[Rfam]
RNA sequence: GUUCGUGCUGAAGGCCUGUUUCCUAGGCUACAAACGGAGGACUGGUUCCUCGUUCCUUUGCCUAGGGGAAAGUCCCCGGACCUUGGGCAGAGAGUGCCACGUGCAUAAGCACGUAGACUUUACCCGCGUUUCACGCUUAGUCCGCCAAGAAGCUCCACCUGGCAGGUGGAGAGCUGAGCGGCGUGUGAGCGGGACGUCAUCCGUCAGCUUAUCUAGUAACGCAGGCAGUGCGUCCGUACGCACCAACCUCACGGGGCUCAUUCUCAGCGCAGC
Number, nucleotide and partner (000 for none) at each position: 001g000002u000003u272004c000005g270006u269007g268008c267009u266010g265011a264012a000013g000014g226015c225016c224017u223018g222019u221020u000021u000022c066023c065024u064025a063026g062027g061028c060029u000030a000031c000032a000033a000034a000035c000036g000037g051038a050039g049040g048041a047042c000043u000044g000045g000046u000047u041048c040049c039050u038051c037052g000053u000054u000055c000056c000057u000058u000059u000060g028061c027062c026063u025064a024065g023066g022067g000068g000069a000070a000071a258072g257073u000074c256075c255076c254077c253078g000079g000080a000081c000082c000083u000084u000085g000086g098087g097088c096089a095090g000091a000092g000093a000094g000095u089096g088097c087098c086099a114100c113101g112102u111103g110104c109105a000106u000107a000108a000109g104110c103111a102112c101113g100114u099115a000116g198117a197118c196119u000120u000121u000122a000123c193124c192125c191126g190127c189128g000129u000130u000131u000132c185133a184134c183135g000136c000137u000138u000139a000140g000141u000142c181143c180144g179145c178146c000147a000148a000149g000150a000151a000152g174153c173154u172155c171156c000157a000158c000159c000160u000161g000162g000163c000164a000165g000166g000167u000168g000169g000170a000171g155172a154173g153174c152175u000176g000177a000178g145179c144180g143181g142182c000183g134184u133185g132186u000187g000188a000189g127190c126191g125192g124193g123194a000195c000196g118197u117198c116199a000200u000201c000202c000203g000204u000205c000206a000207g000208c000209u000210u000211a000212u000213c000214u000215a000216g000217u000218a000219a000220c000221g019222c018223a017224g016225g015226c014227a000228g243229u242230g241231c240232g239233u238234c000235c000236g000237u000238a233239c232240g231241c230242a229243c228244c000245a000246a000247c000248c000249u000250c000251a000252c000253g077254g076255g075256g074257c072258u071259c000260a000261u000262u000263c000264u011265c010266a009267g008268c007269g006270c005271a000272g003273c000
RNA: RNase MRP
Organism: Heterocephalus glaber